[Rfam]
RNA: Nuclear RNase P
RNA sequence: UCCGCUGCGUUCUCUGCCACAAACAACGAGCUGCUCCUGUUGUCAUGAUAGUUGAGCGAUCGUUUCUUCCUUGCAGAUGAGAAAUUCGGAGUAAUCUUCAAACUUUCACCUCUGCCUCAGGUCACUCGCGGCUCAAGGCACUAGGUACUGCUCGCAAGAGCCCGGCACGAUUUCGUGCUCGCAAUUGGCAUCAGAAAUUACAGGGCCUCAAGACCGACAUCCUCGUGGUGUUCGCGUCUCGAGGGAUUCCCUAUGGAAGAGCCGUUGCGAAGAUUGUUUGGACGCAAAAGCGUCACUUACUUUAGUGCAAUCGCAGCGGAAUCCUGCCAGUUCGUGUUUAGAACUGGCUUGGUUUCAAUUCGAUUCCGAUUACUCUGGG
Numbered sequence: 001u002c003c004g005c006u007g008c009g010u011u012c013u014c015u016g017c018c019a020c021a022a023a024c025a026a027c028g029a030g031c032u033g034c035u036c037c038u039g040u041u042g043u044c045a046u047g048a049u050a051g052u053u054g055a056g057c058g059a060u061c062g063u064u065u066c067u068u069c070c071u072u073g074c075a076g077a078u079g080a081g082a083a084a085u086u087c088g089g090a091g092u093a094a095u096c097u098u099c100a101a102a103c104u105u106u107c108a109c110c111u112c113u114g115c116c117u118c119a120g121g122u123c124a125c126u127c128g129c130g131g132c133u134c135a136a137g138g139c140a141c142u143a144g145g146u147a148c149u150g151c152u153c154g155c156a157a158g159a160g161c162c163c164g165g166c167a168c169g170a171u172u173u174c175g176u177g178c179u180c181g182c183a184a185u186u187g188g189c190a191u192c193a194g195a196a197a198u199u200a201c202a203g204g205g206c207c208u209c210a211a212g213a214c215c216g217a218c219a220u221c222c223u224c225g226u227g228g229u230g231u232u233c234g235c236g237u238c239u240c241g242a243g244g245g246a247u248u249c250c251c252u253a254u255g256g257a258a259g260a261g262c263c264g265u266u267g268c269g270a271a272g273a274u275u276g277u278u279u280g281g282a283c284g285c286a287a288a289a290g291c292g293u294c295a296c297u298u299a300c301u302u303u304a305g306u307g308c309a310a311u312c313g314c315a316g317c318g319g320a321a322u323c324c325u326g327c328c329a330g331u332u333c334g335u336g337u338u339u340a341g342a343a344c345u346g347g348c349u350u351g352g353u354u355u356c357a358a359u360u361c362g363a364u365u366c367c368g369a370u371u372a373c374u375c376u377g378g379g
Stems, first nucleotide, its partner, number of pairs: 001318001003316001006313002013077004026063004087368005096272004150161004164179005181268004187263003203252003319356003323352002